[Rfam]
RNA sequence: GAAGGCUUGCUAGCGCCAGGACUCGCCGGCAGGGCGCCGGCGAGUUGACGAGGACCGGGCGUAUCGAACCUUCGGCGGAUCGCCCGGCGGUCGGCCACGACCGAGAGCGGCCCGGCAAAUCCCGGGAGCGAUCCCGGGGACAAUACGGGCCAGGUGGCGUGA
Numbered sequence: 001g002a003a004g005g006c007u008u009g010c011u012a013g014c015g016c017c018a019g020g021a022c023u024c025g026c027c028g029g030c031a032g033g034g035c036g037c038c039g040g041c042g043a044g045u046u047g048a049c050g051a052g053g054a055c056c057g058g059g060c061g062u063a064u065c066g067a068a069c070c071u072u073c074g075g076c077g078g079a080u081c082g083c084c085c086g087g088c089g090g091u092c093g094g095c096c097a098c099g100a101c102c103g104a105g106a107g108c109g110g111c112c113c114g115g116c117a118a119a120u121c122c123c124g125g126g127a128g129c130g131a132u133c134c135c136g137g138g139g140a141c142a143a144u145a146c147g148g149g150c151c152a153g154g155u156g157g158c159g160u161g162a
Base pairs, nucleotide, nucleotide: 020046021045022044023043024042025041026040027039029037055087056086057085058084059083064075065074066073067072088103089102090101091100092099093098109151110150111149112148113147114146121138122137123136124135125134126133127132
RNA: glmS glucosamine-6-phosphate activated ribozyme aptamer